[Rfam]
RNA sequence: GAGGCUGUGGACAAGUGGUUUAAGUCGUCUGUCUUUCACGCAGAAGAUCGCGGGUUCGAAUCCCGUCAGCCCCA
Numbered sequence: 001g002a003g004g005c006u007g008u009g010g011a012c013a014a015g016u017g018g019u020u021u022a023a024g025u026c027g028u029c030u031g032u033c034u035u036u037c038a039c040g041c042a043g044a045a046g047a048u049c050g051c052g053g054g055u056u057c058g059a060a061u062c063c064c065g066u067c068a069g070c071c072c073c074a
Stems, first nucleotide, its partner, number of pairs: 001073001003071005010026003028044005050066005
The family of this 74-nucleotide RNA sequence from marine bacterium AO1-C is "tRNA". Rfam classes the family as a transfer RNA.